[Rfam]
The record is a 77-nucleotide sequence from Azospirillum doebereinerae, which matches "Makes More Granules Regulator RNA (mmgR)" in Rfam. The organism belongs to Azospirillum, within Bacteria.
RNA sequence: UUUGACCGCCUUAUCAGGCGUUUCCUCCCUAAACUCGGGCCGCGGCUGUAUAGCUAGCGGCCUUUUCCUUUUUUCGC
Numbered sequence: 001u002u003u004g005a006c007c008g009c010c011u012u013a014u015c016a017g018g019c020g021u022u023u024c025c026u027c028c029c030u031a032a033a034c035u036c037g038g039g040c041c042g043c044g045g046c047u048g049u050a051u052a053g054c055u056a057g058c059g060g061c062c063u064u065u066u067c068c069u070u071u072u073u074u075c076g077c
Stems, first nucleotide, its partner, number of pairs: 008019004038062006044055003